[Rfam]
RNA sequence: GGGAUAUGAUGAGUGGUCAAAACUCGCUUAUUUGUUGCGAGUGGAGUGUCCGCCCAAGCCUGGUUACGACAAUAGGGCCACUCCAACUUUUACCGAUCUGAUCCC
Numbered sequence: 001g002g003g004a005u006a007u008g009a010u011g012a013g014u015g016g017u018c019a020a021a022a023c024u025c026g027c028u029u030a031u032u033u034g035u036u037g038c039g040a041g042u043g044g045a046g047u048g049u050c051c052g053c054c055c056a057a058g059c060c061u062g063g064u065u066a067c068g069a070c071a072a073u074a075g076g077g078c079c080a081c082u083c084c085a086a087c088u089u090u091u092a093c094c095g096a097u098c099u100g101a102u103c104c105c
Stems, first nucleotide, its partner, number of pairs: 001105004014095004023041005043084006049077002061075001063073002
Rfam assigns this 105-nucleotide RNA from Tetracentron sinense to the family "Small nucleolar RNA Z279/snoR105/snoR108". Its family is annotated with nucleolus and RNA processing in the Gene Ontology. From the family's description: This family includes the plant snoRNAs known as Z279, snoR105 and snoR108. A search with the family's covariance model found it, with a score of 88 bits. The family's RNA type in Rfam is C/D-box small nucleolar RNA. Its Rfam clan is "snoU13 clan".